[Rfam]
RNA sequence: GCUUUACUUCAGCAUCACGAUCAAUACUGGAGGCAUCAGCUGAGGUUUAUCUCCAAUAUUUACGUGCUGCUACAGCAAGGC
Numbered sequence: 001g002c003u004u005u006a007c008u009u010c011a012g013c014a015u016c017a018c019g020a021u022c023a024a025u026a027c028u029g030g031a032g033g034c035a036u037c038a039g040c041u042g043a044g045g046u047u048u049a050u051c052u053c054c055a056a057u058a059u060u061u062a063c064g065u066g067c068u069g070c071u072a073c074a075g076c077a078a079g080g081c
Stems, first nucleotide, its partner, number of pairs: 001081003005077001007075001011071004016066003020061001023060004028055003

Record summary
mir-16 microRNA precursor family: an 81-nucleotide RNA from Megalops atlanticus. It scores 38 bits against the family's covariance model. On this family, see Calin et al., Proc Natl Acad Sci U S A 2002: "Frequent deletions and down-regulation of micro- RNA genes miR15 and miR16 at 13q14 in chronic lymphocytic leukemia". Gene Ontology terms of the family: miRNA-mediated post-transcriptional gene silencing and RISC complex. Pairs were carried over by alignment from the consensus structure, which was predicted with PFOLD.